[Rfam]
This 94-nucleotide RNA from Photobacterium ganghwense belongs to the Rfam family "Tryptophan operon leader". It scores 47 bits against the family's covariance model. The literature on the family includes a 1982 paper in Annu Rev Genet by Kolter and Yanofsky, "Attenuation in amino acid biosynthetic operons". The base pairs follow the family's consensus structure, which is taken from published work.

RNA sequence: UUCUCUUGGUGGUGGCACUUCCCAACGCGGGUGGUGUGAUUCGCUGUGCCUUGAGCCAGACAACACAAACCCGCCUGAGUGCGGGUUUUUUUCA
Numbered sequence: 001u002u003c004u005c006u007u008g009g010u011g012g013u014g015g016c017a018c019u020u021c022c023c024a025a026c027g028c029g030g031g032u033g034g035u036g037u038g039a040u041u042c043g044c045u046g047u048g049c050c051u052u053g054a055g056c057c058a059g060a061c062a063a064c065a066c067a068a069a070c071c072c073g074c075c076u077g078a079g080u081g082c083g084g085g086u087u088u089u090u091u092u093c094a
Stems, first nucleotide, its partner, number of pairs: 009044004015037005021031003068087007075079001